RNA sequence: CCAUUUCAUUUUUGAUCUCCUAAAAAAGGACUUGGGAAAUCCUUAUCAACAAACGUUGGGAGUAAAUUAUCAAAUUCCGGGGAACCCCUAAAGCUUCUGGUACUAAACCAUAUAUGAAAAUAUAUGAGUGGCUGAAGUAAUUACUCAGGUAUAGUAAUAAGCCAGAAGAUGAGUAAAAACGAAAUGGGCAAUCGCGGAUCUAAGUCAGUAAUACAUUCGACCAAACAGUCGAGUAUUAUUGUAAAAGAGCAACGAGUAAAUGGUAGUUGAUGUGGUAUUAAUUUACCGCGUUUAAGAUAUACUCUAGUGGGCUUCGAAAGAAGUUA
Numbered sequence: 001c002c003a004u005u006u007c008a009u010u011u012u013u014g015a016u017c018u019c020c021u022a023a024a025a026a027a028g029g030a031c032u033u034g035g036g037a038a039a040u041c042c043u044u045a046u047c048a049a050c051a052a053a054c055g056u057u058g059g060g061a062g063u064a065a066a067u068u069a070u071c072a073a074a075u076u077c078c079g080g081g082g083a084a085c086c087c088c089u090a091a092a093g094c095u096u097c098u099g100g101u102a103c104u105a106a107a108c109c110a111u112a113u114a115u116g117a118a119a120a121u122a123u124a125u126g127a128g129u130g131g132c133u134g135a136a137g138u139a140a141u142u143a144c145u146c147a148g149g150u151a152u153a154g155u156a157a158u159a160a161g162c163c164a165g166a167a168g169a170u171g172a173g174u175a176a177a178a179a180c181g182a183a184a185u186g187g188g189c190a191a192u193c194g195c196g197g198a199u200c201u202a203a204g205u206c207a208g209u210a211a212u213a214c215a216u217u218c219g220a221c222c223a224a225a226c227a228g229u230c231g232a233g234u235a236u237u238a239u240u241g242u243a244a245a246a247g248a249g250c251a252a253c254g255a256g257u258a259a260a261u262g263g264u265a266g267u268u269g270a271u272g273u274g275g276u277a278u279u280a281a282u283u284u285a286c287c288g289c290g291u292u293u294a295a296g297a298u299a300u301a302c303u304c305u306a307g308u309g310g311g312c313u314u315c316g317a318a319a320g321a322a323g324u325u326a
Stems, first nucleotide, its partner, number of pairs: 005030003009026005034042002065268005071262002076198004080193002086188003199248002206241002211236004252305001254304005270291008311324005
Shown here is a 326-nucleotide RNA sequence from Ophiocordyceps sinensis, a member of the family "Group I catalytic intron".
Group I catalytic introns are large self-splicing ribozymes. They catalyse their own excision from mRNA, tRNA and rRNA precursors in a wide range of organisms. The core secondary structure consists of 9 paired regions (P1-P9).
Rfam links the family to the GO term Group I intron splicing.
A search with the family's covariance model found it, with a score of 74 bits.